The record is a 79-nucleotide sequence from Alligator sinensis, which matches "Mammalian CPEB3 ribozyme" in Rfam. The literature on the family includes a 2006 paper in Science by Salehi-Ashtiani et al., "A genomewide search for ribozymes reveals an HDV-like sequence in the human CPEB3 gene". The mammalian CPEB3 ribozyme is a self cleaving RNA located in the second intron of the CPEB3 gene which belongs to a family of genes regulating messenger RNA polyadenylation. This ribozyme is highly conserved and found only in mammals. The CPEB3 ribozyme is structurally and biochemically related to the human hepatitis delta virus (HDV) ribozyme and the HDV ribozyme is proposed to have arisen from the human transcriptome. There is currently only one other known self cleaving ribozyme in mammals, the CoTC motif. Pairs were carried over by alignment from the consensus structure, which is taken from published work. It scores 41 bits against the family's covariance model.
Nucleotides: 079
Base pairs, nucleotide, nucleotide: 013048014047015046016045019044020043023079024078025077026076028074029073030042032040051068052067053066054065055064056063057062
Number, partner (000 for none) and nucleotide at each position: 001000a002000g003000a004000g005000g006000u007000u008000g009000c010000g011000a012000g013048g014047u015046g016045a017000g018000u019044u020043c021000a022000u023079a024078g025077c026076a027000a028074a029073a030042g031000c032040g033000c034000u035000c036000a037000c038000a039000a040032u041000a042030c043020g044019g045016u046015c047014a048013c049000g050000u051068c052067a053066g054065a055064u056063u057062c058000c059000a060000a061000c062057g063056a064055a065054u066053c067052u068051g069000c070000a071000a072000a073029u074028u075000c076026u077025g078024c079023u